[Rfam]
A member of the RNA family "SAM (S-adenosyl methionine) riboswitch aptamer" from Saccharopolyspora gloriosae, 115 nucleotides long. Pairs were carried over by alignment from the consensus structure, which is taken from published work. It scores 114 bits against the family's covariance model. Lineage of the source: Bacteria > Bacillati > Actinomycetota > Pseudonocardiaceae > Saccharopolyspora. The literature on the family includes a 2008 paper in RNA by Weinberg et al., "The aptamer core of SAM-IV riboswitches mimics the ligand-binding site of SAM-I riboswitches".
RNA sequence: GGUCAUGAGUGCCAGCGGGAAACCCCGGUUUGCUGGCCGGCAACCCUCCUACCGCGGUGGGGUGCCCCGGGUGAGGACCUGGCCGAUCGCGCAGGGCGAUCGGCAAGCGCGGGCC
Numbered sequence: 001g002g003u004c005a006u007g008a009g010u011g012c013c014a015g016c017g018g019g020a021a022a023c024c025c026c027g028g029u030u031u032g033c034u035g036g037c038c039g040g041c042a043a044c045c046c047u048c049c050u051a052c053c054g055c056g057g058u059g060g061g062g063u064g065c066c067c068c069g070g071g072u073g074a075g076g077a078c079c080u081g082g083c084c085g086a087u088c089g090c091g092c093a094g095g096g097c098g099a100u101c102g103g104c105a106a107g108c109g110c111g112g113g114c115c
Stems, first nucleotide, its partner, number of pairs: 001079004009038001011037006021030002039066003044062003048057002082104009